[Rfam]
RNA sequence: UGUCCUCGUCGUGACUGGCGAGGGUGGGUUACCACCGGGGAGCGACGCAGCAGCAGCAGACUUCGGGUCGUACGCCUGGGCCCGGCGG
Numbered sequence: 001u002g003u004c005c006u007c008g009u010c011g012u013g014a015c016u017g018g019c020g021a022g023g024g025u026g027g028g029u030u031a032c033c034a035c036c037g038g039g040g041a042g043c044g045a046c047g048c049a050g051c052a053g054c055a056g057c058a059g060a061c062u063u064c065g066g067g068u069c070g071u072a073c074g075c076c077u078g079g080g081c082c083c084g085g086c087g088g
Stems, first nucleotide, its partner, number of pairs: 004050001007047006015039002017076004024035004065083005
Rfam assigns this 88-nucleotide RNA from Pengzhenrongella frigida to the family "ZMP/ZTP riboswitch aptamer (pfl RNA motif)". Gene Ontology terms of the family: one-carbon metabolic process and regulation of purine nucleotide biosynthetic process. The family's consensus secondary structure is taken from published work. The match comes from Rfam's covariance-model search (54 bits).